[Rfam]
The family of this 62-nucleotide RNA sequence is "Glutamine riboswitch aptamer (glnA leader)". Pairs were carried over by alignment from the consensus structure, which is taken from published work. Its family is annotated with glutamine binding in the Gene Ontology.
RNA sequence: UACGUUCAUCGCUAGUUUAAAUAAUAAGCGACGGAAGUAGGCGAAAGCCGAAGGAACGCAUG
Dot-bracket structure: ..(((((.(((((.............)))))..[.....(((....)))....)))))]...
Numbered sequence: 001u002a003c004g005u006u007c008a009u010c011g012c013u014a015g016u017u018u019a020a021a022u023a024a025u026a027a028g029c030g031a032c033g034g035a036a037g038u039a040g041g042c043g044a045a046a047g048c049c050g051a052a053g054g055a056a057c058g059c060a061u062g
Stems, first nucleotide, its partner, number of pairs: 003058005009031005034059001040049003